[Rfam]
RNA sequence: GUGUCGGCAAAUGGCCAAGUGGAUACUUCGACAUGAUAGCGAUAUUUCAACCAACUGAGGUACUCGGUUCAUAUACCACUAUCCACCGGCGCGAUCCGGCACUUUU
Numbered sequence: 001g002u003g004u005c006g007g008c009a010a011a012u013g014g015c016c017a018a019g020u021g022g023a024u025a026c027u028u029c030g031a032c033a034u035g036a037u038a039g040c041g042a043u044a045u046u047u048c049a050a051c052c053a054a055c056u057g058a059g060g061u062a063c064u065c066g067g068u069u070c071a072u073a074u075a076c077c078a079c080u081a082u083c084c085a086c087c088g089g090c091g092c093g094a095u096c097c098g099g100c101a102c103u104u105u106u
Stems, first nucleotide, its partner, number of pairs: 002101006014090003019086004028067004
RNA: Vault RNA
Organism: Patiria miniata